Rfam assigns this 173-nucleotide sequence from Alkalihalophilus pseudofirmus to the family "Group II catalytic intron D1-D4-3".
[Rfam]
RNA sequence: UCCAUGGCGACAUGGAAUCUGAAGGAAGCUCGAGGCAAAUCUCCGGUAUGACAAACAGAAAGCAUAUAAGAAGCAACGUAUAAAGACAAGAUUGUCAAAGAAGUUAAAAUCCGAUAGCUCCAACAAUCAUAAGGUGUAUAUGUGGCAGAUAGAUGGAGGGGAAAGUUCGCACU
Numbered sequence: 001u002c003c004a005u006g007g008c009g010a011c012a013u014g015g016a017a018u019c020u021g022a023a024g025g026a027a028g029c030u031c032g033a034g035g036c037a038a039a040u041c042u043c044c045g046g047u048a049u050g051a052c053a054a055a056c057a058g059a060a061a062g063c064a065u066a067u068a069a070g071a072a073g074c075a076a077c078g079u080a081u082a083a084a085g086a087c088a089a090g091a092u093u094g095u096c097a098a099a100g101a102a103g104u105u106a107a108a109a110u111c112c113g114a115u116a117g118c119u120c121c122a123a124c125a126a127u128c129a130u131a132a133g134g135u136g137u138a139u140a141u142g143u144g145g146c147a148g149a150u151a152g153a154u155g156g157a158g159g160g161g162a163a164a165g166u167u168c169g170c171a172c173u
Base pairs, nucleotide, nucleotide: 001016002015003014004013005012006011028173030171035166036165040159041158042157043156044155045154046150047149049147050146063144064143065142066141067140073137074136075135077133079131080130081129083127085111086110090105091104092103093102
Rfam's curators write: Group II introns are found in rRNA, tRNA and mRNA of organelles in fungi, plants and protists, and also in mRNA in bacteria.